Shown here is a 208-nucleotide sequence from Streptomyces sp. S4.7, a member of the family "Streptomyces RNA 1601". Identified by deep sequencing of transcriptome at the end of exponential growth phase. Appears longer on northern blot than sequencing transcript. Streptomyces specific. Rfam classes the family as a small RNA. The match comes from Rfam's covariance-model search (173 bits). The source organism's lineage runs through Bacteria, Actinomycetota, Actinomycetes, Streptomycetaceae and Streptomyces. On this family, see Vockenhuber et al., RNA Biol 2011: "Deep sequencing-based identification of small non-coding RNAs in Streptomyces coelicolor".
RNA sequence: AACGACCGGUCGGACAUGUGUGUGCCCGACCCACAAGUGGAGGCUCCGUUCUCCCACCUGGCCGCCCCUCGGGGUGGCGGGUCACCGGUCAGGUGGUCGCCAUCGUUCCGUACGGACGAUGGAGCCGCCCGAUUCGCCCCGCGGUUCGACGCGGCGGUGUUCCGGUAUUCAUGGAGCUCCCGCCUGUGUCCCGUCCGGGGCAUUUUUC
Numbered sequence: 001a002a003c004g005a006c007c008g009g010u011c012g013g014a015c016a017u018g019u020g021u022g023u024g025c026c027c028g029a030c031c032c033a034c035a036a037g038u039g040g041a042g043g044c045u046c047c048g049u050u051c052u053c054c055c056a057c058c059u060g061g062c063c064g065c066c067c068c069u070c071g072g073g074g075u076g077g078c079g080g081g082u083c084a085c086c087g088g089u090c091a092g093g094u095g096g097u098c099g100c101c102a103u104c105g106u107u108c109c110g111u112a113c114g115g116a117c118g119a120u121g122g123a124g125c126c127g128c129c130c131g132a133u134u135c136g137c138c139c140c141g142c143g144g145u146u147c148g149a150c151g152c153g154g155c156g157g158u159g160u161u162c163c164g165g166u167a168u169u170c171a172u173g174g175a176g177c178u179c180c181c182g183c184c185u186g187u188g189u190c191c192c193g194u195c196c197g198g199g200g201c202a203u204u205u206u207u208c
Stems, first nucleotide, its partner, number of pairs: 004090006012027002028083005034060002037057004041052002061078007092129005100122008136201006142193003150188003153184005159177005